This 118-nucleotide RNA sequence from Firmicutes bacterium CAG:110 belongs to the Rfam family "ZMP/ZTP riboswitch aptamer (pfl RNA motif)".

Nucleotides: 118
Base pairs, nucleotide, nucleotide: 003083006080007079008078009077010076011075012074015071017106018105019104020103021102057068058067059066060065097111098110099109
Number, partner (000 for none) and nucleotide at each position: 001000a002000c003083a004000a005000a006080c007079c008078c009077u010076u011075a012074u013000g014000a015071c016000u017106g018105a019104c020103g021102g022000a023000u024000u025000a026000g027000g028000c029000u030000g031000c032000a033000u034000c035000c036000g037000a038000g039000u040000u041000u042000u043000c044000g045000g046000a047000g048000c049000a050000g051000a052000c053000c054000g055000a056000a057068g058067u059066g060065g061000a062000g063000c064000a065060c066059c067058a068057c069000a070000u071015g072000g073000a074012g075011u076010a077009a078008g079007g080006g081000c082000a083003u084000a085000u086000c087000c088000c089000c090000a091000u092000u093000u094000c095000c096000u097111g098110c099109c100000g101000a102021c103020c104019g105018u106017c107000u108000g109099g110098g111097c112000u113000c114000a115000c116000u117000u118000u

It scores 48 bits against the family's covariance model. Its family is annotated with one-carbon metabolic process and regulation of purine nucleotide biosynthetic process in the Gene Ontology. The source organism's lineage runs through Bacteria, Bacillati and Bacillota.